[Rfam]
RNA sequence: GAUCAAGUUUGCGAACAUUCUUGUAGUGGGUAGGCGCAUGGGCAGGAUGGUGUAACCAUCCGGCGGAAGCCACCCAUGCGCAGAACGAGGCUCCUCCGGGGGCCUUUUUUAUGCCUCCA
Numbered sequence: 001g002a003u004c005a006a007g008u009u010u011g012c013g014a015a016c017a018u019u020c021u022u023g024u025a026g027u028g029g030g031u032a033g034g035c036g037c038a039u040g041g042g043c044a045g046g047a048u049g050g051u052g053u054a055a056c057c058a059u060c061c062g063g064c065g066g067a068a069g070c071c072a073c074c075c076a077u078g079c080g081c082a083g084a085a086c087g088a089g090g091c092u093c094c095u096c097c098g099g100g101g102g103c104c105u106u107u108u109u110u111a112u113g114c115c116u117c118c119a
Stems, first nucleotide, its partner, number of pairs: 009026001029115004034081009045061006063070002087106008
Description
The record is a 119-nucleotide RNA, which matches "Rhizobiales sRNA Atu_C8" in Rfam. Rfam classes the family as a small RNA. For this family Rfam cites "Deep sequencing uncovers numerous small RNAs on all four replicons of the plant pathogen Agrobacterium tumefaciens" (Wilms et al., RNA Biol, 2012).